[Rfam]
RNA sequence: UUAGGGUUAGCCGAAAACCUAAGUUCAAUAGAGUAGGCA
Numbered sequence: 001u002u003a004g005g006g007u008u009a010g011c012c013g014a015a016a017a018c019c020u021a022a023g024u025u026c027a028a029u030a031g032a033g034u035a036g037g038c039a
Base pairs, nucleotide, nucleotide: 002021003020004019005018010038011037012036
RNA: DUF805b RNA
Organism: Chitinophaga skermanii